[Rfam]
RNA sequence: CCUCCAUUCUUGGCAUGCUCGCGGUUGUCUGUACGCUUGUGUGAAUAUACGGAGGUAUAUCAGCGCCAGUGCAAUGUCUUCGGUGCCAGCAUGUGCCCAUCAGCUGGUUCUAUCCUCAAUCACUGGAACACUG
Numbered sequence: 001c002c003u004c005c006a007u008u009c010u011u012g013g014c015a016u017g018c019u020c021g022c023g024g025u026u027g028u029c030u031g032u033a034c035g036c037u038u039g040u041g042u043g044a045a046u047a048u049a050c051g052g053a054g055g056u057a058u059a060u061c062a063g064c065g066c067c068a069g070u071g072c073a074a075u076g077u078c079u080u081c082g083g084u085g086c087c088a089g090c091a092u093g094u095g096c097c098c099a100u101c102a103g104c105u106g107g108u109u110c111u112a113u114c115c116u117c118a119a120u121c122a123c124u125g126g127a128a129c130a131c132u133g
Base pairs, nucleotide, nucleotide: 001055002054003053004052005051014043015042016041017040018039021036022035023034067125068124069123070122071121086107087106088105089104090103